[Rfam]
RNA sequence: GUCCAGAAAACAAUGAUGUGGCAAUUUCCAAGCACAUAUCUGAUGAUUUCAUGUGGAAUCAACUACUCUGAGUUUCCUGGAC
Numbered sequence: 001g002u003c004c005a006g007a008a009a010a011c012a013a014u015g016a017u018g019u020g021g022c023a024a025u026u027u028c029c030a031a032g033c034a035c036a037u038a039u040c041u042g043a044u045g046a047u048u049u050c051a052u053g054u055g056g057a058a059u060c061a062a063c064u065a066c067u068c069u070g071a072g073u074u075u076c077c078u079g080g081a082c
Base pairs, nucleotide, nucleotide: 001082002081003080004079005078006077008075009074010073011072